RNA sequence: UGGGGAAUCGUCUAACGGUAGGACAGCGGACUCUGACUCCGCCGGUCCAGGUUCGAAUCCUGGUUCCCCAG
Numbered sequence: 001u002g003g004g005g006a007a008u009c010g011u012c013u014a015a016c017g018g019u020a021g022g023a024c025a026g027c028g029g030a031c032u033c034u035g036a037c038u039c040c041g042c043c044g045g046u047c048c049a050g051g052u053u054c055g056a057a058u059c060c061u062g063g064u065u066c067c068c069c070a071g
Stems, first nucleotide, its partner, number of pairs: 001070007010024004026042005047063005
Dot-bracket structure: (((((((..((((.......)))).(((((.......)))))....(((((.......)))))))))))).
RNA: tRNA
Organism: Ectothiorhodospiraceae bacterium AqS1